RNA sequence: UAACCCGCGUCGAAAGACGCGGCUGAACCGGCAGGAGUCAGCAGAGGCCAUAGUACGUCUCCCGCGACGUCCGGGAGACGGAAGGGC
Numbered sequence: 001u002a003a004c005c006c007g008c009g010u011c012g013a014a015a016g017a018c019g020c021g022g023c024u025g026a027a028c029c030g031g032c033a034g035g036a037g038u039c040a041g042c043a044g045a046g047g048c049c050a051u052a053g054u055a056c057g058u059c060u061c062c063c064g065c066g067a068c069g070u071c072c073g074g075g076a077g078a079c080g081g082a083a084g085g086g087c
Base pairs, nucleotide, nucleotide: 001025002024005022006021007020008019009018010017011016038045039044047087048086049085056080057079058078059077060076061075062074063073064072
The family of this 87-nucleotide RNA from Calditerricola satsumensis is "Group II catalytic intron D1-D4-1".
From the family's description: Group II introns are found in rRNA, tRNA and mRNA of organelles in fungi, plants and protists, and also in mRNA in bacteria.